[Rfam]
RNA sequence: UAGUCCGCGAGGAUAUGUGCGGAGGAUGCAAAGGCAAAACCCGGAACAGGCGGCUUACCAUGUUGGCUUGUGGAACCGGAUGACCCUGCGAAAUAAGGGGACGUCCAAUACCAUCAAUGGUUUCGAAAGUUAGGAGGACUGGAUUCGGGGGAAAAGUCGGUAGA
Dot-bracket structure: ..((((....))))............(..(...((....(((((..(((.....((.((......(((..((((((.((((..((((........))))...)))).............))))))..)))..)).)).)))...)))))......))...)..)